Shown here is a 90-nucleotide sequence from Pseudooceanicola batsensis, a member of the family "Glycine riboswitch aptamer". A search with the family's covariance model found it, with a score of 50 bits. The pairing is the family consensus, mapped onto this sequence.

RNA sequence: GACAUCGGACAGGGAGAACCGGCCGCGCGCCGGUGCCGAAGGAGCAACCGCCCCGGAAACUCUCAGGCCAAAAGGGACCUGCCGGUAUCG
Numbered sequence: 001g002a003c004a005u006c007g008g009a010c011a012g013g014g015a016g017a018a019c020c021g022g023c024c025g026c027g028c029g030c031c032g033g034u035g036c037c038g039a040a041g042g043a044g045c046a047a048c049c050g051c052c053c054c055g056g057a058a059a060c061u062c063u064c065a066g067g068c069c070a071a072a073a074g075g076g077a078c079c080u081g082c083c084g085g086u087a088u089c090g
Stems, first nucleotide, its partner, number of pairs: 006085001008083001010081004019033004035068003038064002042062003048056002
NCBI's taxonomy places the organism under Bacteria, Pseudomonadati, Pseudomonadota, Paracoccaceae, Pseudooceanicola batsensis.